[Rfam]
RNA sequence: AAGGAUAAUAUUUUAAACCCUCAUAUAUGCUCAUAAUAUGGUUGAGCGUCUCUACGAGUCCCCGUAAAGGACUUACUAUGAGCGGGGAAUAGUCAGGU
Numbered sequence: 001a002a003g004g005a006u007a008a009u010a011u012u013u014u015a016a017a018c019c020c021u022c023a024u025a026u027a028u029g030c031u032c033a034u035a036a037u038a039u040g041g042u043u044g045a046g047c048g049u050c051u052c053u054a055c056g057a058g059u060c061c062c063c064g065u066a067a068a069g070g071a072c073u074u075a076c077u078a079u080g081a082g083c084g085g086g087g088a089a090u091a092g093u094c095a096g097g098u
Base pairs, nucleotide, nucleotide: 018084020082021081022080023079024078025077029047030046031045032044033043056074057073058072059071060070061069
Notes
Shown here is a 98-nucleotide sequence from Propionigenium maris, a member of the family "Purine riboswitch aptamer". Lineage of the source: Bacteria > Fusobacteriota > Fusobacteriaceae > Propionigenium > Propionigenium maris. The family has 133 seed sequences and 4,097 matches in Rfam 15.1. Pairs were carried over by alignment from the consensus structure, which is taken from published work.